[Rfam]
RNA sequence: GGCGGUAGCGUCCCCCACAAACUAACAAUCCCCUCGCCUUUUACUAGGGGAUUCCGUGUGGGUGGCGCAUCUAAUGCCGCGUUCCUAAUCUUUGGGCUUCCAUAUCUUACAGAGAUA
Numbered sequence: 001g002g003c004g005g006u007a008g009c010g011u012c013c014c015c016c017a018c019a020a021a022c023u024a025a026c027a028a029u030c031c032c033c034u035c036g037c038c039u040u041u042u043a044c045u046a047g048g049g050g051a052u053u054c055c056g057u058g059u060g061g062g063u064g065g066c067g068c069a070u071c072u073a074a075u076g077c078c079g080c081g082u083u084c085c086u087a088a089u090c091u092u093u094g095g096g097c098u099u100c101c102a103u104a105u106c107u108u109a110c111a112g113a114g115a116u117a
Stems, first nucleotide, its partner, number of pairs: 003079004009067004014062006027053008103117004
A member of the RNA family "U5 spliceosomal RNA" from Dendrothele bispora, 117 nucleotides long.
U5 RNA is a component of both types of known spliceosome. The precise function of this molecule is unknown, though it is known that the 5' loop is required for splice site selection and p220 binding, and that both the 3' stem-loop and the Sm site are important for Sm protein binding and cap methylation.
The match comes from Rfam's covariance-model search (67 bits).